Shown here is a 78-nucleotide sequence, a member of the family "CyVA-1 RNA". About the family: Cyanobacteria, Acidobacteria (1 example), Verrucomicrobia (1 example). It is annotated as a small RNA.
RNA sequence: GCACUGGGAAGGCAGCUACACCGCAGUGUCUUUUUGCCUUAUGUCGAAGAAGAGCGGCAUCAGAGGUAGGGACGGUGC
Dot-bracket structure: ((((((..((((.................))))....(((((.((.................)).)))))..))))))
Numbered sequence: 001g002c003a004c005u006g007g008g009a010a011g012g013c014a015g016c017u018a019c020a021c022c023g024c025a026g027u028g029u030c031u032u033u034u035u036g037c038c039u040u041a042u043g044u045c046g047a048a049g050a051a052g053a054g055c056g057g058c059a060u061c062a063g064a065g066g067u068a069g070g071g072a073c074g075g076u077g078c
Stems, first nucleotide, its partner, number of pairs: 001078006009033004038070005044064002